[Rfam]
RNA sequence: CAACCUCUGACGAAACUCGUGAACGUUG
Numbered sequence: 001c002a003a004c005c006u007c008u009g010a011c012g013a014a015a016c017u018c019g020u021g022a023a024c025g026u027u028g
Stems, first nucleotide, its partner, number of pairs: 001028004008023001010020004